Background:
The family of this 146-nucleotide RNA from Bacillus sp. B-jedd is "FMN riboswitch aptamer (RFN element)".
RNA sequence: AUAUUCCUUCGGGGCAGGGUGAAAUUCCCUACCGGCGGUGAUGGGGCAAGAUGCUUCCAAGCCCGUGACCCGGGUGCUUUACGGCAUUCGGUGGAUCCGGUGAGAUUCCGGGGCCGACAGUAUAGUCUGGAUGGGAGAAGGAAAAG
Numbered sequence: 001a002u003a004u005u006c007c008u009u010c011g012g013g014g015c016a017g018g019g020u021g022a023a024a025u026u027c028c029c030u031a032c033c034g035g036c037g038g039u040g041a042u043g044g045g046g047c048a049a050g051a052u053g054c055u056u057c058c059a060a061g062c063c064c065g066u067g068a069c070c071c072g073g074g075u076g077c078u079u080u081a082c083g084g085c086a087u088u089c090g091g092u093g094g095a096u097c098c099g100g101u102g103a104g105a106u107u108c109c110g111g112g113g114c115c116g117a118c119a120g121u122a123u124a125g126u127c128u129g130g131a132u133g134g135g136a137g138a139a140g141g142a143a144a145a146g
Base pairs, nucleotide, nucleotide: 004143005142006141007140008139009138010137017029018028019027031126032125033116034115035066036065037064038063061114062113070091071090096112097111098110099109100108118129119128120127

The family's consensus secondary structure is taken from published work.